[Rfam]
RNA sequence: UUAUCCUUACCUAAAGACUCACUGUUUAAGAAGCUAACACAGAAGGGUAAAGUAAGUCUCCAUAAAACCCAGGGGAGAGAUUACAGAACUCUUCUUUGGAUCCUGUCUGGAGUUACAGUU
Numbered sequence: 001u002u003a004u005c006c007u008u009a010c011c012u013a014a015a016g017a018c019u020c021a022c023u024g025u026u027u028a029a030g031a032a033g034c035u036a037a038c039a040c041a042g043a044a045g046g047g048u049a050a051a052g053u054a055a056g057u058c059u060c061c062a063u064a065a066a067a068c069c070c071a072g073g074g075g076a077g078a079g080a081u082u083a084c085a086g087a088a089c090u091c092u093u094c095u096u097u098g099g100a101u102c103c104u105g106u107c108u109g110g111a112g113u114u115a116c117a118g119u120u
Stems, first nucleotide, its partner, number of pairs: 002049007011042002016038001018033001020030001056114001058112005069099007077091003081088002
A member of the RNA family "Small nucleolar RNA SNORA26" from Erinaceus europaeus, 120 nucleotides long.
Gene Ontology terms of the family: RNA processing and nucleolus.
The family's consensus secondary structure was predicted with RNAalifold.
It is one of the family's seed sequences.
Taxonomically the source falls in Erinaceus (Eukaryota, Metazoa, Bilateria, Theria).
The family is grouped with related families in Rfam's "SNORA27 clan".
The family's RNA type in Rfam is H/ACA-box small nucleolar RNA.
The family has 76 seed sequences and 1,943 matches in Rfam 15.1.
The literature on the family includes a 2001 paper in EMBO J by Huttenhofer et al., "RNomics: an experimental approach that identifies 201 candidates for novel, small, non-messenger RNAs in mouse".
Rfam's curators write: The snoRNA HBI-6 belong to the H/ACA family of snoRNAs, guiding the pseudouridylation of position U4522 if the 28S rRNA. HBI-6 is the human orthologue of mouse MBI-6 snoRNA.